Shown here is a 47-nucleotide sequence from Nyssa sinensis, a member of the family "Plastid-rpl16 group II-D1 intron".
About the family: Plastid-rpl16 is a non-coding RNA (ncRNA) recognised in plastids. It was recognised in and intronic region of a ribosome rpl16 gene.

[Rfam]
RNA sequence: AAGAGCCCUGAGUCAAUAAAGACUAAGAAAAUUGACUCGAGGAUAAA
Dot-bracket structure: ......(..((((((((.............))))))))..)......